[Rfam]
Description
This 244-nucleotide part of an RNA from Mycobacterium lacus belongs to the Rfam family "Bacterial large subunit ribosomal RNA". A search with the family's covariance model found it, with a score of 2757 bits. Rfam links the family to the GO terms structural constituent of ribosome and ribosome. The base pairs follow the family's consensus structure, which is taken from published work. The family has 102 seed sequences and 51,934 matches in Rfam 15.1.
RNA sequence: GAGUCAGGGACAUGUCGCGAGGUUAACCCGUGUGGGGUAGCCGCAGCGAAAGCGAGUCUGAAUAGGGCGUAUCCCCGUAAGGGGUGUAGUGGCAUGUUCUGGACCCGAAGCGGAGUGAUCUACCCAUGGCCAGGGUGAAGCGCGGGUAAGACCGCGUGGAGGCCCGAACCCACUUAGGUUGAAGACUGAGGGGAUGAGCUGUGGGUAGGGGUGAAAGGCCAAUCAAACUCCGUGAUAGCUGGUU
Number, nucleotide and partner (000 for none) at each position: 001g000002a000003g000004u000005c101006a100007g099008g000009g098010a097011c096012a095013u094014g093015u092016c091017g090018c089019g000020a000021g042022g041023u040024u039025a000026a000027c036028c035029c034030g000031u000032g000033u000034g029035g028036g027037g000038u000039a024040g023041c022042c021043g000044c000045a000046g053047c052048g000049a000050a000051a000052g047053c046054g000055a000056g068057u067058c066059u065060g000061a000062a000063u000064a000065g059066g058067g057068c056069g000070u000071a000072u000073c000074c000075c000076c000077g000078u000079a000080a000081g000082g000083g000084g000085u000086g000087u000088a000089g018090u017091g016092g015093c014094a013095u012096g011097u010098u009099c007100u006101g005102g000103a000104c242105c241106c000107g239108a000109a000110g000111c232112g231113g230114a229115g228116u227117g000118a000119u000120c208121u207122a206123c205124c204125c203126a202127u201128g200129g199130c198131c196132a000133g165134g164135g163136u162137g000138a000139a000140g157141c156142g155143c154144g153145g152146g000147u000148a000149a000150g000151a000152c145153c144154g143155c142156g141157u140158g000159g000160a000161g000162g136163c135164c134165c133166g000167a000168a000169c193170c192171c191172a000173c190174u189175u188176a187177g186178g000179u000180u000181g000182a000183a000184g000185a000186c177187u176188g175189a174190g173191g171192g170193g169194a000195u000196g131197a000198g130199c129200u128201g127202u126203g125204g124205g123206u122207a121208g120209g000210g220211g219212u218213g000214a000215a000216a000217g000218g212219c211220c210221a000222a000223u000224c000225a000226a000227a116228c115229u114230c113231c112232g111233u000234g000235a000236u000237a000238g000239c107240u000241g105242g104243u000244u000